[Rfam]
RNA: SAM/SAH riboswitch aptamer
Organism: Pseudooceanicola batsensis
RNA sequence: CCGCUGUCCCAACGGCUUCCUGACGGGACGGUAUGACAUCCAUCGGAGCG
Numbered sequence: 001c002c003g004c005u006g007u008c009c010c011a012a013c014g015g016c017u018u019c020c021u022g023a024c025g026g027g028a029c030g031g032u033a034u035g036a037c038a039u040c041c042a043u044c045g046g047a048g049c050g
Stems, first nucleotide, its partner, number of pairs: 004031007013022002015049003019046002